Rfam assigns this 97-nucleotide RNA sequence from Indicator maculatus to the family "mir-210 microRNA precursor family". The literature on the family includes a 2005 paper in Proc Natl Acad Sci U S A by Cai et al., "Kaposi's sarcoma-associated herpesvirus expresses an array of viral microRNAs in latently infected cells". Lineage of the source: Eukaryota > Teleostomi > Sauropsida > Archelosauria > Indicator.
RNA sequence: CCGAGGAGCAGGUUAGCCGCUGUCACACGCACAGUGGAGUCGCCGAGAGCACAAUGUGCGUUAGUCAGUGGCUCACCUGCUCCUGGAGGGUGACAUG
Numbered sequence: 001c002c003g004a005g006g007a008g009c010a011g012g013u014u015a016g017c018c019g020c021u022g023u024c025a026c027a028c029g030c031a032c033a034g035u036g037g038a039g040u041c042g043c044c045g046a047g048a049g050c051a052c053a054a055u056g057u058g059c060g061u062u063a064g065u066c067a068g069u070g071g072c073u074c075a076c077c078u079g080c081u082c083c084u085g086g087a088g089g090g091u092g093a094c095a096u097g
Base pairs, nucleotide, nucleotide: 005083006082007081008080009079010078011077012076015073016072017071018070019069020068021067022066024064025062028060029059030058031057032056033055035053036052

The match comes from Rfam's covariance-model search (50 bits).
Rfam 15.1 lists 790 matches to the family in 722 species.